[Rfam]
RNA sequence: GGGCGCAUGGUCUAGGGGUAUGAUUUUCGCUUCGCAUGUGAAAGGUCCGGGGUUCAAUUCCCCGUGCGUCCA
Numbered sequence: 001g002g003g004c005g006c007a008u009g010g011u012c013u014a015g016g017g018g019u020a021u022g023a024u025u026u027u028c029g030c031u032u033c034g035c036a037u038g039u040g041a042a043a044g045g046u047c048c049g050g051g052g053u054u055c056a057a058u059u060c061c062c063c064g065u066g067c068g069u070c071c072a
Base pairs, nucleotide, nucleotide: 001071002070003069004068005067006066007065010024011023012022026042027041028040029039030038048064049063050062051061052060
Dot-bracket structure: (((((((..(((.........))).(((((.......))))).....(((((.......)))))))))))).
The record is a 72-nucleotide RNA from Pochonia chlamydosporia, which matches "tRNA" in Rfam.
Gene Ontology term of the family: triplet codon-amino acid adaptor activity.
From the family's description: Transfer RNA (tRNA) molecules are approximately 80 nucleotides in length.
The family's consensus secondary structure is taken from published work.
The match comes from Rfam's covariance-model search (55 bits).